[Rfam]
RNA sequence: AAAAGAAAAAACCUGCAGUCAAAACACUGCAGGUCCUUUUAUUUUUAUCUAAAAAUAAAAGGCUAAAGGGAGAGGAGAAACCGGAUGAAGUGCUUAUGGGGAAGAAUAAGCCUUCUUCCGUUU
Numbered sequence: 001a002a003a004a005g006a007a008a009a010a011a012c013c014u015g016c017a018g019u020c021a022a023a024a025c026a027c028u029g030c031a032g033g034u035c036c037u038u039u040u041a042u043u044u045u046u047a048u049c050u051a052a053a054a055a056u057a058a059a060a061g062g063c064u065a066a067a068g069g070g071a072g073a074g075g076a077g078a079a080a081c082c083g084g085a086u087g088a089a090g091u092g093c094u095u096a097u098g099g100g101g102a103a104g105a106a107u108a109a110g111c112c113u114u115c116u117u118c119c120g121u122u123u
Stems, first nucleotide, its partner, number of pairs: 011034009035070005040057006082120004087115004092111005
RNA: ylbH leader
Organism: Oceanobacillus sp. J11TS1